[Rfam]
Rfam assigns this 118-nucleotide RNA sequence to the family "Prevotella-2 RNA". The family's RNA type in Rfam is small RNA. Rfam's curators put it in the seed alignment.
RNA sequence: GGGUGGCAACACCCAUGAUAGAUAAAAUCCGUUCAGCAAUGAAUGGAGGUUUGUUUUAAUUAGUCGUUUGUGUGAGAGUUUGUGAAAACGAUCACAUAUAAAAUCUUAAAAGUUGAGU
Numbered sequence: 001g002g003g004u005g006g007c008a009a010c011a012c013c014c015a016u017g018a019u020a021g022a023u024a025a026a027a028u029c030c031g032u033u034c035a036g037c038a039a040u041g042a043a044u045g046g047a048g049g050u051u052u053g054u055u056u057u058a059a060u061u062a063g064u065c066g067u068u069u070g071u072g073u074g075a076g077a078g079u080u081u082g083u084g085a086a087a088a089c090g091a092u093c094a095c096a097u098a099u100a101a102a103a104u105c106u107u108a109a110a111a112g113u114u115g116a117g118u
Base pairs, nucleotide, nucleotide: 001014002013003012004011022054023053024052025051026050029046030045031044032043033042034041035040069098070097071096072095073094074093078089079088080087081086